[Rfam]
RNA sequence: AGCCCUUUUAAAAACAGUCCAGAGAGGCUGGCAAGGGGGAUAUGGCAAAAGGAACGUGUCUUUUGCUUAGUUGGCUUAUCCUCUUUGCGAACGCUUGCAAAGAGGAUUUUUUUUG
Numbered sequence: 001a002g003c004c005c006u007u008u009u010a011a012a013a014a015c016a017g018u019c020c021a022g023a024g025a026g027g028c029u030g031g032c033a034a035g036g037g038g039g040a041u042a043u044g045g046c047a048a049a050a051g052g053a054a055c056g057u058g059u060c061u062u063u064u065g066c067u068u069a070g071u072u073g074g075c076u077u078a079u080c081c082u083c084u085u086u087g088c089g090a091a092c093g094c095u096u097g098c099a100a101a102g103a104g105g106a107u108u109u110u111u112u113u114u115g
Stems, first nucleotide, its partner, number of pairs: 003038006015030005039072003044067009078107013
Rfam assigns this 115-nucleotide RNA sequence from Bacillus methanolicus to the family "PyrR binding site". It scores 72 bits against the family's covariance model. Rfam links the family to the GO terms pyrimidine nucleobase biosynthetic process and pyrimidine nucleobase transport. Rfam classes the family as a cis-regulatory element. Rfam's curators write: This family represents the PyrR binding site and terminator structure. The source organism's lineage runs through Bacteria, Bacillota, Bacillaceae, Bacillus and Bacillus methanolicus.